[Rfam]
RNA sequence: AGUGUGGCUAGGGUAGCUCCCGAAUAGCAGAAACGCCUAUCUGCUUGCCACGCUUUUAUUAUAGGCG
Numbered sequence: 001a002g003u004g005u006g007g008c009u010a011g012g013g014u015a016g017c018u019c020c021c022g023a024a025u026a027g028c029a030g031a032a033a034c035g036c037c038u039a040u041c042u043g044c045u046u047g048c049c050a051c052g053c054u055u056u057u058a059u060u061a062u063a064g065g066c067g
Base pairs, nucleotide, nucleotide: 001054002053003052004051005050006049007048008047011021012020013019027044028043029042030041031040037065038064
Shown here is a 67-nucleotide sequence from Eubacterium sp. 14-2, a member of the family "int-alpA RNA". A search with the family's covariance model found it, with a score of 44 bits. It is annotated as a small RNA. Acidobacteria (1 example), Planctomycetes (1 example), Proteobacteria.